[Rfam]
RNA sequence: UUAAUUUAAAUUACUGUGGUUCUACACUUUGAAAAUUGAAUCCACACAAAGUGGUGAGACAUACAUUGAUUUCAUCCAA
Numbered sequence: 001u002u003a004a005u006u007u008a009a010a011u012u013a014c015u016g017u018g019g020u021u022c023u024a025c026a027c028u029u030u031g032a033a034a035a036u037u038g039a040a041u042c043c044a045c046a047c048a049a050a051g052u053g054g055u056g057a058g059a060c061a062u063a064c065a066u067u068g069a070u071u072u073c074a075u076c077c078a079a
Stems, first nucleotide, its partner, number of pairs: 001079002006074001008072006015065004023056002025053007